[Rfam]
RNA sequence: AUGGUCUGGAAAAUGGCUACUGUGUGGUUGAAUCCCAGAAACCUGGAUGCAGCCCUGUACCAGUCAGCCUAAUUCUGACCUAGAGUAAAUUCCCAGGCAAAGUGGGAUUUUAAUUUUGCAGUAACAGGUGUGAGCAUUCUAGCAGGAGUUCGAUGAUCAUGUAUAAUACUGCAAACAAUA
Numbered sequence: 001a002u003g004g005u006c007u008g009g010a011a012a013a014u015g016g017c018u019a020c021u022g023u024g025u026g027g028u029u030g031a032a033u034c035c036c037a038g039a040a041a042c043c044u045g046g047a048u049g050c051a052g053c054c055c056u057g058u059a060c061c062a063g064u065c066a067g068c069c070u071a072a073u074u075c076u077g078a079c080c081u082a083g084a085g086u087a088a089a090u091u092c093c094c095a096g097g098c099a100a101a102g103u104g105g106g107a108u109u110u111u112a113a114u115u116u117u118g119c120a121g122u123a124a125c126a127g128g129u130g131u132g133a134g135c136a137u138u139c140u141a142g143c144a145g146g147a148g149u150u151c152g153a154u155g156a157u158c159a160u161g162u163a164u165a166a167u168a169c170u171g172c173a174a175a176c177a178a179u180a
Base pairs, nucleotide, nucleotide: 003080004079005078006077008075009074010073015069016068017067018066019064020063021062022061024060025059026054027053028052029051030050032048033047034046092106093105094104115175116174117173118172119171120170121169122168123167126164131159132158133157135155136154137153138152141150142149143148
Dot-bracket structure: ..((((.(((....((((((((.(((((((.(((...........))).)))))....)))))).))))...))).))))...........(((.........)))........(((((((((..(....(((.((((..(((....))).)))).)))....)..))))))))).....